Rfam assigns this 108-nucleotide sequence from Fictibacillus arsenicus to the family "TPP riboswitch aptamer (THI element)".
Vitamin B(1) in its active form thiamin pyrophosphate (TPP) is an essential coenzyme that is synthesised by coupling of pyrimidine and thiazole moieties in bacteria.
It scores 74 bits against the family's covariance model.

RNA sequence: AGUAACCACAGGGGGAGUCCUAUAAAUGGGCUGAGAGGGGAGUGUACUCCCGACCCUUUGAACCUGAAGCUGGAUAAUGCCUGCGUAGGGAUGUGGAGUCGUACUUUU
Numbered sequence: 001a002g003u004a005a006c007c008a009c010a011g012g013g014g015g016a017g018u019c020c021u022a023u024a025a026a027u028g029g030g031c032u033g034a035g036a037g038g039g040g041a042g043u044g045u046a047c048u049c050c051c052g053a054c055c056c057u058u059u060g061a062a063c064c065u066g067a068a069g070c071u072g073g074a075u076a077a078u079g080c081c082u083g084c085g086u087a088g089g090g091a092u093g094u095g096g097a098g099u100c101g102u103a104c105u106u107u108u
Stems, first nucleotide, its partner, number of pairs: 006096005011057004017031004038051005063089004070083001072081002